[Rfam]
RNA sequence: UGAAAGCGCACAGGAGAGAGGCAUGCCAAGAGCAUGCCCGCCGAAGAUUUAAUAAUUUCAGGCAAAGUGGACUGACGCUGGAG
Numbered sequence: 001u002g003a004a005a006g007c008g009c010a011c012a013g014g015a016g017a018g019a020g021g022c023a024u025g026c027c028a029a030g031a032g033c034a035u036g037c038c039c040g041c042c043g044a045a046g047a048u049u050u051a052a053u054a055a056u057u058u059c060a061g062g063c064a065a066a067g068u069g070g071a072c073u074g075a076c077g078c079u080g081g082a083g
Stems, first nucleotide, its partner, number of pairs: 005079004011074003020038006040063003043059002047057001049055001
The family of this 83-nucleotide RNA sequence from Vibrio agarilyticus is "Glycine riboswitch aptamer". From the family's description: This family represents the bacterial glycine riboswitch. The literature on the family includes a 2004 paper in Science by Mandal et al., "A glycine-dependent riboswitch that uses cooperative binding to control gene expression". A search with the family's covariance model found it, with a score of 36 bits.